The record is a 211-nucleotide sequence from Rhizobiales bacterium PAR1, which matches "permuted transfer-messenger RNA" in Rfam.
The organism belongs to Hyphomicrobiales, within Bacteria.
It is annotated as a non-coding RNA gene.
The family's consensus secondary structure is taken from published work.
RNA sequence: GGCGAUAAACGGCUAUCGUAAUAAACCUUUCGGACCCGGGGGCGGUACCCGGCGCCUCCACCUCAACGCCGCGUGCGACGUUCAGGCGGGGGCGAAACAGGAUCGACGAGGGCGUAAAGGGUGGACUUUUGCUCGGCAUGAUACCACCGUUAUCGGGUCAAAAACGAUAGUUGCGAAUGACAACAAUCGCUCGGUUGCCUUGGCUGCGUAA
Numbered sequence: 001g002g003c004g005a006u007a008a009a010c011g012g013c014u015a016u017c018g019u020a021a022u023a024a025a026c027c028u029u030u031c032g033g034a035c036c037c038g039g040g041g042g043c044g045g046u047a048c049c050c051g052g053c054g055c056c057u058c059c060a061c062c063u064c065a066a067c068g069c070c071g072c073g074u075g076c077g078a079c080g081u082u083c084a085g086g087c088g089g090g091g092g093c094g095a096a097a098c099a100g101g102a103u104c105g106a107c108g109a110g111g112g113c114g115u116a117a118a119g120g121g122u123g124g125a126c127u128u129u130u131g132c133u134c135g136g137c138a139u140g141a142u143a144c145c146a147c148c149g150u151u152a153u154c155g156g157g158u159c160a161a162a163a164a165c166g167a168u169a170g171u172u173g174c175g176a177a178u179g180a181c182a183a184c185a186a187u188c189g190c191u192c193g194g195u196u197g198c199c200u201u202g203g204c205u206g207c208g209u210a211a
Base pairs, nucleotide, nucleotide: 001133002132003131004130005129014123015122016121017120026112027111028110030109031108032107036052037051038050039049040048053094054093055092056091057090058089059088134149135148136147